The family of this 360-nucleotide RNA from Anaerotruncus sp. AF02-27 is "Bacterial RNase P class A".
RNA sequence: AGAGCGGAUUGAACAGCGGCGGCGCGCCCAUGGGCGCGGUGAGGAAAGUCCGGGCUUCACAGGGCAGGAUACCUGCUAACGGCAGGCCGAGGCGACUCGAGGGAAAGUGCAACAGAGAGAUACCGCCGCCGUAUCACCGGGGAUUUCCCCGGCGGACGACGGCAAGGGUGGAAAGGCGGGGUAAGAGCCCACCGGAAUGCAGGAGACUGCAUUGCCAUGUAAACCCUAUCCGAAGCAACAUCAGCUGGAACAAUGCGGCGGCCCGCCGGGUUCCGAAAGAUGGCUCGAGCCGCGCGGCAACGCGCGGCCUAGAUAGAUCGUUGUUCACGACAGAACCCGGCUUACAGAUCCGCUUUCUGC
Numbered sequence: 001a002g003a004g005c006g007g008a009u010u011g012a013a014c015a016g017c018g019g020c021g022g023c024g025c026g027c028c029c030a031u032g033g034g035c036g037c038g039g040u041g042a043g044g045a046a047a048g049u050c051c052g053g054g055c056u057u058c059a060c061a062g063g064g065c066a067g068g069a070u071a072c073c074u075g076c077u078a079a080c081g082g083c084a085g086g087c088c089g090a091g092g093c094g095a096c097u098c099g100a101g102g103g104a105a106a107g108u109g110c111a112a113c114a115g116a117g118a119g120a121u122a123c124c125g126c127c128g129c130c131g132u133a134u135c136a137c138c139g140g141g142g143a144u145u146u147c148c149c150c151g152g153c154g155g156a157c158g159a160c161g162g163c164a165a166g167g168g169u170g171g172a173a174a175g176g177c178g179g180g181g182u183a184a185g186a187g188c189c190c191a192c193c194g195g196a197a198u199g200c201a202g203g204a205g206a207c208u209g210c211a212u213u214g215c216c217a218u219g220u221a222a223a224c225c226c227u228a229u230c231c232g233a234a235g236c237a238a239c240a241u242c243a244g245c246u247g248g249a250a251c252a253a254u255g256c257g258g259c260g261g262c263c264c265g266c267c268g269g270g271u272u273c274c275g276a277a278a279g280a281u282g283g284c285u286c287g288a289g290c291c292g293c294g295c296g297g298c299a300a301c302g303c304g305c306g307g308c309c310u311a312g313a314u315a316g317a318u319c320g321u322u323g324u325u326c327a328c329g330a331c332a333g334a335a336c337c338c339g340g341c342u343u344a345c346a347g348a349u350c351c352g353c354u355u356u357c358u359g360c
Stems, first nucleotide, its partner, number of pairs: 001356010011345001012325007020041002023038006046343003050340005055235004062264004067231005072086005087101001088099004102226002107224002109220003123167002125163004130158003175193002178190003194215001195213002198211005239282004248273004256268004289308008

Taxonomically the source falls in Anaerotruncus (Bacteria, Bacillota, Clostridia, Eubacteriales). Ribonuclease P (RNase P) is a ubiquitous endoribonuclease, found in archaea, bacteria and eukarya as well as chloroplasts and mitochondria. Its best characterised activity is the generation of mature 5'-ends of tRNAs by cleaving the 5'-leader elements of precursor-tRNAs. Cellular RNase Ps are ribonucleoproteins.